[Rfam]
RNA sequence: GCAACCUCAAGCUGGCACACGGCAACCUGGUGGUGUUCCGCUCGCUGCUGGGCAUCUCCUGGAUGUGGUUCUUCGGCGCGGUCUUCCUGUCGCUCUUCCCCGCCUUCGCGAAGAGCGUGCUG
Numbered sequence: 001g002c003a004a005c006c007u008c009a010a011g012c013u014g015g016c017a018c019a020c021g022g023c024a025a026c027c028u029g030g031u032g033g034u035g036u037u038c039c040g041c042u043c044g045c046u047g048c049u050g051g052g053c054a055u056c057u058c059c060u061g062g063a064u065g066u067g068g069u070u071c072u073u074c075g076g077c078g079c080g081g082u083c084u085u086c087c088u089g090u091c092g093c094u095c096u097u098c099c100c101c102g103c104c105u106u107c108g109c110g111a112a113g114a115g116c117g118u119g120c121u122g
Stems, first nucleotide, its partner, number of pairs: 010049003014045001017042001021038002025034002051121005057115001059113002063105001065103001067099002074092005080087002
Burkholderia RNA 11: a 122-nucleotide RNA from Pseudideonella sakaiensis. Co-purified with Hfq, expression confirmed by Northern blot. Predicted target marZ. Overlaps coding sequence.